[Rfam]
The family of this 73-nucleotide sequence from Daucus carota is "Small nucleolar RNA Z155". On this family, see Chen et al., Nucleic Acids Res 2003: "The high diversity of snoRNAs in plants: identification and comparative study of 120 snoRNA genes from Oryza sativa". Its family is annotated with RNA processing and nucleolus in the Gene Ontology. NCBI's taxonomy places the organism under Eukaryota, Tracheophyta, Spermatophyta, campanulids, Daucus carota.
RNA sequence: UGUUGGGGUGAGGAUUGAUUAUACGGAAUAUACAUGUCGAUUUAAAAAACAGACUACAAUUAUCUGACCAAUG
Numbered sequence: 001u002g003u004u005g006g007g008g009u010g011a012g013g014a015u016u017g018a019u020u021a022u023a024c025g026g027a028a029u030a031u032a033c034a035u036g037u038c039g040a041u042u043u044a045a046a047a048a049a050c051a052g053a054c055u056a057c058a059a060u061u062a063u064c065u066g067a068c069c070a071a072u073g
Stems, first nucleotide, its partner, number of pairs: 001073006